[Rfam]
RNA sequence: UUCUUAUUAUGAGAGGCGGAGGGACUGGCCCUGCGAUGCCUCGGCAGCGGACUUUUUUAAAGAGUGCUGUGCCAAAUCCAGCAAGCUCCAGAGCUUGGAAGAUAAGAA
Number, nucleotide and partner (000 for none) at each position: 001u108002u107003c106004u105005u104006a103007u102008u101009a000010u000011g000012a000013g042014a041015g040016g039017c038018g000019g000020a000021g031022g030023g029024a000025c081026u080027g079028g078029c023030c022031c021032u000033g000034c000035g000036a000037u000038g017039c016040c015041u014042c013043g073044g072045c071046a070047g000048c069049g068050g000051a065052c064053u063054u062055u000056u000057u000058u000059a000060a000061a000062g054063a053064g052065u051066g000067c000068u049069g048070u046071g045072c044073c043074a000075a000076a000077u100078c028079c027080a026081g025082c097083a096084a095085g094086c093087u092088c000089c000090a000091g000092a087093g086094c085095u084096u083097g082098g000099a000100a077101g008102a007103u006104a005105a004106g003107a002108a001
Shown here is a 108-nucleotide RNA sequence from Bacillus sp. SJS, a member of the family "SAM riboswitch aptamer (S box leader)". The SAM riboswitch is found upstream of a number of genes which code for proteins involved in methionine or cysteine biosynthesis in Gram-positive bacteria. The family's consensus secondary structure is taken from published work.